The family of this 151-nucleotide sequence from Allobosea sp. PAMC 26642 is "speF leader". The literature on the family includes a 2005 paper in Genome Biol by Corbino et al., "Evidence for a second class of S-adenosylmethionine riboswitches and other regulatory RNA motifs in alpha-proteobacteria". The family's consensus secondary structure was predicted with RNAalifold. Rfam describes the family as follows. This family is a putative regulatory RNA structure that is found upstream of the speF gene encoding ornithine decarboxylase in Agrobacterium tumefaciens and other alpha-proteobacteria.
RNA sequence: CGCUGGUCCUCCAAAGACCAGCACCGAAGAGGCUUGUCCUUCAUUGCCGGGCGUGCGGGGUUCAUCUCCCAAGCGACGGUUAUCAAAGUCCGGACGUUUCGUUCGGCGUAUCUCGGCGUUUCCAACGCGCCGUGGUUCGCUCGAUCGACUC
Numbered sequence: 001c002g003c004u005g006g007u008c009c010u011c012c013a014a015a016g017a018c019c020a021g022c023a024c025c026g027a028a029g030a031g032g033c034u035u036g037u038c039c040u041u042c043a044u045u046g047c048c049g050g051g052c053g054u055g056c057g058g059g060g061u062u063c064a065u066c067u068c069c070c071a072a073g074c075g076a077c078g079g080u081u082a083u084c085a086a087a088g089u090c091c092g093g094a095c096g097u098u099u100c101g102u103u104c105g106g107c108g109u110a111u112c113u114c115g116g117c118g119u120u121u122c123c124a125a126c127g128c129g130c131c132g133u134g135g136u137u138c139g140c141u142c143g144a145u146c147g148a149c150u151c
Stems, first nucleotide, its partner, number of pairs: 002022007031048003055130003078091002101111002